[Rfam]
RNA sequence: CAUAUUAACUCUGGAAAGAGAUUAAAUUCUCGCCGAAGGAGCAAAACUCUCAGGCAAAUAUACAGAUGGGUAAAA
Dot-bracket structure: .....(...((((.....(((......))).(((((..(((.....))))).))).......))))...).....
The record is a 75-nucleotide RNA sequence from Candidatus Pelagibacter sp. HTCC7211, which matches "Glycine riboswitch aptamer" in Rfam. The family has 44 seed sequences and 9,425 matches in Rfam 15.1. Taxonomically the source falls in Candidatus Pelagibacter (Bacteria, Pseudomonadota, Candidatus Pelagibacterales, Candidatus Pelagibacteraceae).